[Rfam]
RNA sequence: CCAGUGGUGUCGCCGCGCGCUACUCCGGCGCCGGGGCUGUUCUCAGAGUCAGGUACCUGAAGUAGCGCGCGGUGUCUCCGCUU
Numbered sequence: 001c002c003a004g005u006g007g008u009g010u011c012g013c014c015g016c017g018c019g020c021u022a023c024u025c026c027g028g029c030g031c032c033g034g035g036g037c038u039g040u041u042c043u044c045a046g047a048g049u050c051a052g053g054u055a056c057c058u059g060a061a062g063u064a065g066c067g068c069g070c071g072g073u074g075u076c077u078c079c080g081c082u083u
Base pairs, nucleotide, nucleotide: 009076011074012073014071016069017068018067019066020065021064022063030054031053032052035050036049037048038047

Shown here is an 83-nucleotide RNA from Leptidea sinapis, a member of the family "mir-275 microRNA precursor family". The source organism's lineage runs through Eukaryota, Dicondylia, Obtectomera, Dismorphiinae and Leptidea. The family's consensus secondary structure was predicted with RNAalifold. It scores 66 bits against the family's covariance model. A reference for the family is Winter et al. (2007), "Anopheles gambiae miRNAs as actors of defence reaction against Plasmodium invasion", Nucleic Acids Res.